RNA sequence: GUCUUGCAAGGUUGAUUUAUGAAUAUUUCACAUGUCAGACUUCAGAGAUUUUGGAAACAAGAUCUAUGAGAAGGCAUUUCAUUAUUCUGAGCAGAC
Number, nucleotide and partner (000 for none) at each position: 001g096002u095003c000004u094005u093006g092007c091008a000009a000010g000011g000012u000013u000014g000015a000016u000017u000018u000019a000020u000021g000022a000023a000024u000025a000026u000027u000028u000029c000030a000031c000032a000033u000034g000035u000036c000037a000038g000039a000040c000041u000042u000043c000044a000045g000046a000047g064048a063049u062050u061051u060052u059053g000054g000055a000056a000057a000058c000059a052060a051061g050062a049063u048064c047065u000066a000067u000068g000069a000070g000071a000072a000073g000074g000075c000076a000077u000078u000079u000080c000081a000082u000083u000084a000085u000086u000087c000088u000089g000090a000091g007092c006093a005094g004095a002096c001

Shown here is a 96-nucleotide RNA sequence from Papaver somniferum, a member of the family "Small nucleolar RNA R64/Z200 family". Lineage of the source: Eukaryota > Viridiplantae > Ranunculales > Papaveroideae > Papaver. A reference for the family is Galardi et al. (2002), "Purified box C/D snoRNPs are able to reproduce site-specific 2'-O-methylation of target RNA in vitro", Mol Cell Biol. The family's RNA type in Rfam is C/D-box small nucleolar RNA.